Description: Shown here is a 76-nucleotide RNA sequence from Alligator sinensis, a member of the family "Mammalian CPEB3 ribozyme". From the family's description: The mammalian CPEB3 ribozyme is a self cleaving RNA located in the second intron of the CPEB3 gene which belongs to a family of genes regulating messenger RNA polyadenylation. This ribozyme is highly conserved and found only in mammals. The CPEB3 ribozyme is structurally and biochemically related to the human hepatitis delta virus (HDV) ribozyme and the HDV ribozyme is proposed to have arisen from the human transcriptome. Lineage of the source: Eukaryota > Craniata > Teleostomi > Euteleostomi > Alligator. The base pairs follow the family's consensus structure, which is taken from published work.
[Rfam]
RNA sequence: GUUGCAAGUUCGCAGCCACAGCAGAAGCAGACAUGAUGUGGUUGUGUCAAAUUCCAACAAAUCUGUGAAUUCUGCU
Numbered sequence: 001g002u003u004g005c006a007a008g009u010u011c012g013c014a015g016c017c018a019c020a021g022c023a024g025a026a027g028c029a030g031a032c033a034u035g036a037u038g039u040g041g042u043u044g045u046g047u048c049a050a051a052u053u054c055c056a057a058c059a060a061a062u063c064u065g066u067g068a069a070u071u072c073u074g075c076u
Base pairs, nucleotide, nucleotide: 013044014043015042016041017040020076021075022074023073024072025071026070027039028038029037048065049064051062052061053060